[Rfam]
A member of the RNA family "Plant small nucleolar RNA U3" from Nicotiana attenuata, 212 nucleotides long. The literature on the family includes a 1997 paper in Nucleic Acids Res by Zwieb, "The uRNA database". The family has 24 seed sequences and 3,759 matches in Rfam 15.1. Gene Ontology terms of the family: nucleolus and RNA processing. The source organism's lineage runs through Eukaryota, Tracheophyta, Gunneridae, asterids and Nicotiana. The family is grouped with related families in Rfam's "U3 clan". By type it is a C/D-box small nucleolar RNA.
RNA sequence: ACGACCUUACUUGAACAGGAUCUGUUCUAUAGGCUCGUACCACUGCAUCCUUGAGUUCUAAGGAGACAGAAAACCAAGUCUGGUUGAUGAAGUGUAGCCAUGAGACCAGAGCGUGAUUGACAGCUUUGGUGGCCCUUGGGCUUCUGCGCAGUAGAGGAUCGUUCUCAGGCCUCUCGUAGGUCUGGGGUGGUCUCUUGGCUCUCUGACAGACU
Numbered sequence: 001a002c003g004a005c006c007u008u009a010c011u012u013g014a015a016c017a018g019g020a021u022c023u024g025u026u027c028u029a030u031a032g033g034c035u036c037g038u039a040c041c042a043c044u045g046c047a048u049c050c051u052u053g054a055g056u057u058c059u060a061a062g063g064a065g066a067c068a069g070a071a072a073a074c075c076a077a078g079u080c081u082g083g084u085u086g087a088u089g090a091a092g093u094g095u096a097g098c099c100a101u102g103a104g105a106c107c108a109g110a111g112c113g114u115g116a117u118u119g120a121c122a123g124c125u126u127u128g129g130u131g132g133c134c135c136u137u138g139g140g141c142u143u144c145u146g147c148g149c150a151g152u153a154g155a156g157g158a159u160c161g162u163u164c165u166c167a168g169g170c171c172u173c174u175c176g177u178a179g180g181u182c183u184g185g186g187g188u189g190g191u192c193u194c195u196u197g198g199c200u201c202u203c204u205g206a207c208a209g210a211c212u
Stems, first nucleotide, its partner, number of pairs: 001038002003035001005033003013027006043069003048064006078211005097199004102194007110163004120152002123149002126146001128144001131142004165185008
Dot-bracket structure: (((.(((.....((((((...))))))...))).).))....(((..((((((.....))))))..)))........(((((..............((((.(((((((.((((......((.((.(.(..((((....)))).).).)).)).......)))).((((((((.....))))))))..))))))).)))).......))))).